The family of this 68-nucleotide RNA from Hipposideros armiger is "mir-711 microRNA precursor family". Pairs were carried over by alignment from the consensus structure, which was predicted with RNAalifold. For this family Rfam cites "In silico detection and characteristics of novel microRNA genes in the Equus caballus genome using an integrated ab initio and comparative genomic approach" (Zhou et al., Genomics, 2009).
RNA sequence: CCUGACUUGGGUCUCUCCUCAGGGUGCUACAGGCAAAGCCGGGGACCCGGGAAGAGAUGUAAGUAAGG
Numbered sequence: 001c002c003u004g005a006c007u008u009g010g011g012u013c014u015c016u017c018c019u020c021a022g023g024g025u026g027c028u029a030c031a032g033g034c035a036a037a038g039c040c041g042g043g044g045a046c047c048c049g050g051g052a053a054g055a056g057a058u059g060u061a062a063g064u065a066a067g068g
Stems, first nucleotide, its partner, number of pairs: 002067002005064004011058006018051002022048004027043002030041001032039001